[Rfam]
RNA sequence: CUUGCUAUCCAUUCAGCAUGACUCUAUCCGGACGUGUGCGCCUCGGUAAACGGACGGGUGCGAAGCUUCGGAGACAACGCGGGAUUAUCGAGAGUUCGAAAUUGAUAUAAGUGAAUCCUCGAAACCGAUUCUUUUGGAUGA
Numbered sequence: 001c002u003u004g005c006u007a008u009c010c011a012u013u014c015a016g017c018a019u020g021a022c023u024c025u026a027u028c029c030g031g032a033c034g035u036g037u038g039c040g041c042c043u044c045g046g047u048a049a050a051c052g053g054a055c056g057g058g059u060g061c062g063a064a065g066c067u068u069c070g071g072a073g074a075c076a077a078c079g080c081g082g083g084a085u086u087a088u089c090g091a092g093a094g095u096u097c098g099a100a101a102u103u104g105a106u107a108u109a110a111g112u113g114a115a116u117c118c119u120c121g122a123a124a125c126c127g128a129u130u131c132u133u134u135u136g137g138a139u140g141a
Stems, first nucleotide, its partner, number of pairs: 003018004028071005033062005039056002042053001044052002086101001088099004102122004109116001125137004

Group II catalytic intron D1-D4-7: a 141-nucleotide RNA from Cylicocyclus nassatus. Rfam's curators write: Group II introns are found in rRNA, tRNA and mRNA of organelles in fungi, plants and protists, and also in mRNA in bacteria. Gene Ontology term of the family: Group II intron splicing. NCBI's taxonomy places the organism under Eukaryota, Eumetazoa, Rhabditomorpha, Strongyloidea, Cylicocyclus. The match comes from Rfam's covariance-model search (43 bits).